[Rfam]
RNA sequence: CACUUAUUAAGAGUGGUGGAGGGACUGGCCCUAUGAAACCCGGCAACCAGUACAUUAUGUACAUUGGUGCUAAAUCCUGCAACGUUAUGUUGAGAGAUGAGGA
Numbered sequence: 001c002a003c004u005u006a007u008u009a010a011g012a013g014u015g016g017u018g019g020a021g022g023g024a025c026u027g028g029c030c031c032u033a034u035g036a037a038a039c040c041c042g043g044c045a046a047c048c049a050g051u052a053c054a055u056u057a058u059g060u061a062c063a064u065u066g067g068u069g070c071u072a073a074a075u076c077c078u079g080c081a082a083c084g085u086u087a088u089g090u091u092g093a094g095a096g097a098u099g100a101g102g103a
Stems, first nucleotide, its partner, number of pairs: 003101006013041001015040003021031003025079001027077002042071004047067002050062003075095001080092005

Shown here is a 103-nucleotide sequence from Clostridium argentinense, a member of the family "SAM riboswitch aptamer (S box leader)". The organism belongs to Clostridium argentinense, within Bacteria. Rfam's curators write: The SAM riboswitch is found upstream of a number of genes which code for proteins involved in methionine or cysteine biosynthesis in Gram-positive bacteria. The match comes from Rfam's covariance-model search (85 bits).